[Rfam]
RNA: Metazoan signal recognition particle RNA
Organism: Powellomyces hirtus
RNA sequence: GCAGGGCACAGCUGGUGCGUGCCUGUAAGCCAGAUCUCUGGGCUGCUAGAAUGACAGAAUGGACAUGUUGUUGGACUUGCGCUGUGAGUUUACACGUAUCCAUUCUCAGUCCGAUCUUAGGGCCAAGUCAACAGCCUGUGUGAGUGGAAGCGCAUGCAGACGGUUGUUAAAGACUGGAGAAACGCCUCAGGCUGGGAACAGAGCAGGGAAAAUCCAGCGCUUGGUUCGGAAGGUCGGGUCGCCGGGAUCCACGGGGUGUGGGCUCUCAGUGCCAGCAGCAUGUCGAGACUGUCAUUCGU
Numbered sequence: 001g002c003a004g005g006g007c008a009c010a011g012c013u014g015g016u017g018c019g020u021g022c023c024u025g026u027a028a029g030c031c032a033g034a035u036c037u038c039u040g041g042g043c044u045g046c047u048a049g050a051a052u053g054a055c056a057g058a059a060u061g062g063a064c065a066u067g068u069u070g071u072u073g074g075a076c077u078u079g080c081g082c083u084g085u086g087a088g089u090u091u092a093c094a095c096g097u098a099u100c101c102a103u104u105c106u107c108a109g110u111c112c113g114a115u116c117u118u119a120g121g122g123c124c125a126a127g128u129c130a131a132c133a134g135c136c137u138g139u140g141u142g143a144g145u146g147g148a149a150g151c152g153c154a155u156g157c158a159g160a161c162g163g164u165u166g167u168u169a170a171a172g173a174c175u176g177g178a179g180a181a182a183c184g185c186c187u188c189a190g191g192c193u194g195g196g197a198a199c200a201g202a203g204c205a206g207g208g209a210a211a212a213u214c215c216a217g218c219g220c221u222u223g224g225u226u227c228g229g230a231a232g233g234u235c236g237g238g239u240c241g242c243c244g245g246g247a248u249c250c251a252c253g254g255g256g257u258g259u260g261g262g263c264u265c266u267c268a269g270u271g272c273c274a275g276c277a278g279c280a281u282g283u284c285g286a287g288a289c290u291g292u293c294a295u296u297c298g299u
Stems, first nucleotide, its partner, number of pairs: 001046003004024006029043003049297009060286001062284013080271005086265007093255001095253003104247004109242002111237002114234005120227009129166004134161001136159006144153003167171001174217005185208003192201003